[Rfam]
RNA sequence: CUGCGUUAGGGAUUGUAGUGGCAUCCUUUUUUGUCUUUUUUCAAAAAAGAUAUAACGGAAAGCCCGACCCUUG
Numbered sequence: 001c002u003g004c005g006u007u008a009g010g011g012a013u014u015g016u017a018g019u020g021g022c023a024u025c026c027u028u029u030u031u032u033g034u035c036u037u038u039u040u041u042c043a044a045a046a047a048a049g050a051u052a053u054a055a056c057g058g059a060a061a062g063c064c065c066g067a068c069c070c071u072u073g
Stems, first nucleotide, its partner, number of pairs: 009065003013061002018056002023051003029046005